[Rfam]
RNA: int-alpA RNA
RNA sequence: ACCGUGUCUAGGCUGAUCCCCGAAAAUUCGUACACCUCUACGAGCUGGCACGGUUCCUAAAUUAGAGG
Numbered sequence: 001a002c003c004g005u006g007u008c009u010a011g012g013c014u015g016a017u018c019c020c021c022g023a024a025a026a027u028u029c030g031u032a033c034a035c036c037u038c039u040a041c042g043a044g045c046u047g048g049c050a051c052g053g054u055u056c057c058u059a060a061a062u063u064a065g066a067g068g
Base pairs, nucleotide, nucleotide: 001054002053003052004051005050006049007048008047011021012020027044028043029042030041031040035068036067037066038065039064
Dot-bracket structure: ((((((((..((.......)).....(((((...[[[[[)))))..)))))))).........]]]]]